[Rfam]
RNA sequence: GCCUUGGUGGUGGAACUGGUAGACACAGCAGACUCAAAAUCUGCCGCUGAAAGGCGUGCCGGUUCGAUUCCGGCCCGAGGCA
Numbered sequence: 001g002c003c004u005u006g007g008u009g010g011u012g013g014a015a016c017u018g019g020u021a022g023a024c025a026c027a028g029c030a031g032a033c034u035c036a037a038a039a040u041c042u043g044c045c046g047c048u049g050a051a052a053g054g055c056g057u058g059c060c061g062g063u064u065c066g067a068u069u070c071c072g073g074c075c076c077g078a079g080g081c082a
Stems, first nucleotide, its partner, number of pairs: 001081007010026003028044005058074005

A member of the RNA family "tRNA" from Massilia cavernae, 82 nucleotides long. A search with the family's covariance model found it, with a score of 55 bits. Pairs were carried over by alignment from the consensus structure, which is taken from published work.